[Rfam]
RNA sequence: CUGGUUGCGAUGAUUAUGACAAAUUCCUCGUUCUGAAUGCUAUAGCCAUGGCAUGACAGACUCCUAUUACACCCAUAGAAUAUGAGCACC
Numbered sequence: 001c002u003g004g005u006u007g008c009g010a011u012g013a014u015u016a017u018g019a020c021a022a023a024u025u026c027c028u029c030g031u032u033c034u035g036a037a038u039g040c041u042a043u044a045g046c047c048a049u050g051g052c053a054u055g056a057c058a059g060a061c062u063c064c065u066a067u068u069a070c071a072c073c074c075a076u077a078g079a080a081u082a083u084g085a086g087c088a089c090c
Stems, first nucleotide, its partner, number of pairs: 003090002006088002

Shown here is a 90-nucleotide sequence from Ricinus communis, a member of the family "Small nucleolar RNA snoR8a". On this family, see Brown et al., RNA 2001: "Multiple snoRNA gene clusters from Arabidopsis". Rfam's curators put it in the seed alignment. The base pairs follow the family's consensus structure, which was predicted with WAR. Rfam links the family to the GO terms RNA processing and nucleolus.